[Rfam]
Nucleotides: 588
Base pairs, nucleotide, nucleotide: 004020005019006018007017008016022578023577024576025575026574027573028572029571030570031569034450035449036448037447040443041410047408048407049406051405052404053403056089057088061087062086063085068081096363097362098361106283107282108281111278112277115276116275121271122270123269124268139170140169146162148160149159150158151157178185179184192243193242194241195240196239197238205231206230207229213222214221215220253264254263255262256261285334286333287332293325294324295323300322301321302320303319304318305317306316307315338360339359340358341357342353343352344351345350365386366385368383369382370381388399389398390397391396416441418440419439420438424436425435426434427433428432456483457482458481459479460478461477462476463475464474465473466472467471490510494506495505520567521566522565523564524563525562534561535560536559537558543550544549
Number, partner (000 for none) and nucleotide at each position: 001000a002000a003000a004020c005019u006018g007017g008016u009000u010000g011000a012000u013000c014000c015000u016008g017007c018006c019005a020004g021000u022578a023577g024576u025575g026574u027573g028572u029571g030570c031569u032000c033000a034450u035449u036448g037447a038000a039000a040443g041410g042000a043000u044000u045000a046000a047408g048407c049406c050000a051405u052404g053403c054000a055000u056089g057088u058000c059000u060000a061087a062086g063085a064000u065000c066000g067000g068081g069000u070000g071000u072000u073000u074000a075000u076000a077000c078000a079000a080000c081068c082000u083000a084000a085063u086062c087061u088057g089056c090000g091000g092000a093000c094000g095000g096363c097362u098361c099000a100000u101000u102000a103000a104000a105000u106283c107282g108281g109000u110000u111278a112277a113000a114000a115276u116275g117000u118000a119000c120000a121271c122270g123269g124268c125000a126000a127000u128000a129000a130000c131000u132000u133000a134000c135000u136000a137000g138000u139170c140169g141000g142000a143000u144000a145000a146162c147000a148160c149159u150158g151157g152000u153000a154000a155000a156000u157151c158150u159149a160148g161000a162146g163000c164000u165000a166000a167000u168000a169140c170139g171000u172000g173000c174000u175000u176000c177000c178185a179184c180000u181000u182000c183000g184179g185178u186000g187000g188000g189000c190000a191000u192243u193242u194241a195240u196239u197238a198000g199000g200000u201000u202000g203000a204000a205231g206230c207229c208000a209000a210000u211000c212000g213222c214221u215220c216000u217000u218000c219000g220215g221214a222213g223000u224000g225000u226000u227000u228000a229207g230206g231205u232000g233000a234000u235000u236000c237000a238197u239196a240195a241194u242193a243192a244000c245000u246000u247000a248000g249000c250000a251000g252000a253264u254263c255262g256261c257000g258000c259000a260000a261256g262255c263254g264253a265000c266000a267000a268124g269123c270122c271121g272000u273000u274000c275116c276115a277112u278111u279000u280000u281108c282107c283106g284000c285334u286333c287332u288000a289000u290000c291000a292000c293325a294324c295323u296000u297000u298000c299000g300322a301321c302320g303319g304318u305317a306316g307315a308000a309000u310000a311000g312000g313000g314000g315307u316306c317305u318304a319303c320302c321301g322300u323295g324294g325293u326000a327000a328000u329000a330000a331000c332287g333286g334285a335000u336000a337000a338360c339359g340358g341357a342353g343352a344351a345350u346000u347000a348000g349000g350345g351344u352343u353342u354000g355000a356000c357341u358340c359339c360338g361098g362097a363096g364000a365386u366385g367000g368383a369382g370381c371000c372000u373000g374000a375000g376000a377000a378000a379000u380000g381370g382369c383368u384000a385366c386365a387000a388399c389398u390397u391396c392000u393000a394000a395000g396391g397390a398389a399388g400000g401000c402000a403053g404052c405051a406049g407048g408047c409000g410041c411000g412000a413000a414000a415000a416441u417000u418440c419439u420438c421000c422000a423000a424436u425435g426434g427433c428432c429000a430000a431000a432428g433427g434426c435425c436424g437000a438420g439419a440418g441416a442000g443040c444000g445000a446000c447037u448036c449035a450034a451000c452000a453000u454000a455000a456483c457482g458481a459479g460478a461477u462476u463475u464474u465473c466472u467471c468000u469000a470000u471467g472466a473465g474464a475463a476462a477461a478460u479459c480000a481458u482457c483456g484000c485000a486000a487000u488000g489000a490510g491000u492000a493000c494506a495505g496000c497000a498000u499000a500000c501000a502000a503000c504000a505495c506494u507000c508000u509000u510490c511000g512000a513000g514000a515000a516000a517000c518000a519000a520567u521566u522565g523564g524563a525562g526000g527000g528000c529000a530000a531000g532000u533000u534561c535560u536559g537558g538000u539000g540000c541000c542000a543550g544549c545000a546000g547000c548000c549544g550543c551000g552000g553000u554000a555000a556000u557000u558537c559536c560535a561534g562525c563524u564523c565522c566521a567520a568000u569031a570030g571029u572028g573027c574026a575025c576024a577023u578022u579000a580000a581000a582000g583000u584000u585000g586000c587000u588000g

Rfam assigns this 588-nucleotide part of an RNA from Kipferlia bialata to the family "Eukaryotic small subunit ribosomal RNA".
Rfam links the family to the GO terms structural constituent of ribosome and ribosome.
A search with the family's covariance model found it, with a score of 1514 bits.
The source organism's lineage runs through Eukaryota, Metamonada, Fornicata, Carpediemonas-like organisms and Kipferlia.
The base pairs follow the family's consensus structure, which is taken from published work.